The family of this 155-nucleotide RNA from Enhydra lutris is "U1 spliceosomal RNA". It is annotated as a spliceosomal small nuclear RNA. U1 is a small nuclear RNA (snRNA) component of the spliceosome (involved in pre-mRNA splicing). Its 5' end forms complementary base pairs with the 5' splice junction, thus defining the 5' donor site of an intron. There are significant differences in sequence and secondary structure between metazoan and yeast U1 snRNAs, the latter being much longer (568 nucleotides as compared to 164 nucleotides in human). Lineage of the source: Eukaryota > Opisthokonta > Dipnotetrapodomorpha > Caniformia > Enhydra lutris.
RNA sequence: AUACUUACCCGGAAUACCAUGAUCACGAAGGUGGUUUUCCCAGGGUAAGGCUUAUCUGUUGUACUCCAGAGGUGCUGACCCCUGCAAUUUCCCCAAAUGUGGGAAACUCGACUUCAUAAUUGGGGGUGGUGGGGAACUGCAUUUGCAUUCUCCCC
Numbered sequence: 001a002u003a004c005u006u007a008c009c010c011g012g013a014a015u016a017c018c019a020u021g022a023u024c025a026c027g028a029a030g031g032u033g034g035u036u037u038u039c040c041c042a043g044g045g046u047a048a049g050g051c052u053u054a055u056c057u058g059u060u061g062u063a064c065u066c067c068a069g070a071g072g073u074g075c076u077g078a079c080c081c082c083u084g085c086a087a088u089u090u091c092c093c094c095a096a097a098u099g100u101g102g103g104a105a106a107c108u109c110g111a112c113u114u115c116a117u118a119a120u121u122g123g124g125g126g127u128g129g130u131g132g133g134g135a136a137c138u139g140c141a142u143u144u145g146c147a148u149u150c151u152c153c154c155c
Base pairs, nucleotide, nucleotide: 012115013114014113016035017034018033019032020031042083043082044081045080049076050075051074053072055070056069057068085110087108088106089105090104092102093101131153132152133151134150136149138147139146140145